[Rfam]
RNA sequence: UCAUUGCAGCGUCAUUGGGGAGUAGCCGCUCUUCGCUCGAAGAGGCUUAUGUCAACACACUUGGCCCACAGGCCAUGGCAUAAGCGGUCCCUUAGAUCACUUUUCAACAUGUCGCUGGCAGCGUUGCGCAUCCUUGCCGUACCUCGGUACU
Numbered sequence: 001u002c003a004u005u006g007c008a009g010c011g012u013c014a015u016u017g018g019g020g021a022g023u024a025g026c027c028g029c030u031c032u033u034c035g036c037u038c039g040a041a042g043a044g045g046c047u048u049a050u051g052u053c054a055a056c057a058c059a060c061u062u063g064g065c066c067c068a069c070a071g072g073c074c075a076u077g078g079c080a081u082a083a084g085c086g087g088u089c090c091c092u093u094a095g096a097u098c099a100c101u102u103u104u105c106a107a108c109a110u111g112u113c114g115c116u117g118g119c120a121g122c123g124u125u126g127c128g129c130a131u132c133c134u135u136g137c138c139g140u141a142c143c144u145c146g147g148u149a150c151u
Stems, first nucleotide, its partner, number of pairs: 030043003045085010062075005
The family of this 151-nucleotide RNA from Paucimonas lemoignei is "Manganese Mn2+ riboswitch aptamer (yybP-ykoY)".
A search with the family's covariance model found it, with a score of 83 bits.
Pairs were carried over by alignment from the consensus structure.
NCBI's taxonomy places the organism under Bacteria, Pseudomonadati, Pseudomonadota, Burkholderiaceae, Paucimonas.